Shown here is an 86-nucleotide RNA sequence from Clostridium sp. Maddingley MBC34-26, a member of the family "pan motif". The organism belongs to Clostridium, within Bacteria.

[Rfam]
RNA sequence: UGGGUAGUAUCGAAAGAGAAUUACACCGAUAUUUUUAGCAUUAAGAAUUAUAAUACAACUCAUAUCUAUAUGAAUGAGAUUGAAGU
Numbered sequence: 001u002g003g004g005u006a007g008u009a010u011c012g013a014a015a016g017a018g019a020a021u022u023a024c025a026c027c028g029a030u031a032u033u034u035u036u037a038g039c040a041u042u043a044a045g046a047a048u049u050a051u052a053a054u055a056c057a058a059c060u061c062a063u064a065u066c067u068a069u070a071u072g073a074a075u076g077a078g079a080u081u082g083a084a085g086u
Stems, first nucleotide, its partner, number of pairs: 001028003004024005010019002056082003059078005065073002